[Rfam]
RNA sequence: AGCUUUCUGAUGUUGAUGAUACUGCAUCAGGAACUGAUUGGAUGAUAUCGUGGAGCCAACGGUUCCUGAUGCAUCCCCUUCAGCAUCGAAAGA
Numbered sequence: 001a002g003c004u005u006u007c008u009g010a011u012g013u014u015g016a017u018g019a020u021a022c023u024g025c026a027u028c029a030g031g032a033a034c035u036g037a038u039u040g041g042a043u044g045a046u047a048u049c050g051u052g053g054a055g056c057c058a059a060c061g062g063u064u065c066c067u068g069a070u071g072c073a074u075c076c077c078c079u080u081c082a083g084c085a086u087c088g089a090a091a092g093a
Stems, first nucleotide, its partner, number of pairs: 023073005029067008039058003